[Rfam]
RNA sequence: CUACUCCCUCCGUCCCAUAAUAUAAGAGUGUUUUUGACACUGCAUAUUAUGGGAUGUAGUGUCAAAAACGCUCUUAUAUUAUGGGACGGAGGGAGUAC
Numbered sequence: 001c002u003a004c005u006c007c008c009u010c011c012g013u014c015c016c017a018u019a020a021u022a023u024a025a026g027a028g029u030g031u032u033u034u035u036g037a038c039a040c041u042g043c044a045u046a047u048u049a050u051g052g053g054a055u056g057u058a059g060u061g062u063c064a065a066a067a068a069c070g071c072u073c074u075u076a077u078a079u080u081a082u083g084g085g086a087c088g089g090a091g092g093g094a095g096u097a098c
Base pairs, nucleotide, nucleotide: 003096004095005094007092008091009090010089011088013086014085015084016083017082019080020079021078022077023076024075025074026073027072028071029070030069031068032067033066034065035064036063037062038061039060040059041058042057043056044055045054
About this RNA: A member of the RNA family "MIR1120/MIR1122 microRNA precursor family" from Aegilops tauschii, 98 nucleotides long. A reference for the family is Yao et al. (2007), "Cloning and characterization of microRNAs from wheat (Triticum aestivum L.)", Genome Biol.